[Rfam]
RNA sequence: ACAAUGAUACUUCUGCCUAGCCACAGCCAGUAGGGUAUGACCUGAACACGCAAUGGGGGCAGCCACGCGAGAACCGCGAGGAGGACGAACCUAUGG
Numbered sequence: 001a002c003a004a005u006g007a008u009a010c011u012u013c014u015g016c017c018u019a020g021c022c023a024c025a026g027c028c029a030g031u032a033g034g035g036u037a038u039g040a041c042c043u044g045a046a047c048a049c050g051c052a053a054u055g056g057g058g059g060c061a062g063c064c065a066c067g068c069g070a071g072a073a074c075c076g077c078g079a080g081g082a083g084g085a086c087g088a089a090c091c092u093a094u095g096g
Stems, first nucleotide, its partner, number of pairs: 012093001013062006063081002067077003082092003
A member of the RNA family "pemK RNA" from Butyrivibrio sp. INlla14, 96 nucleotides long.
Rfam classes the family as a cis-regulatory element.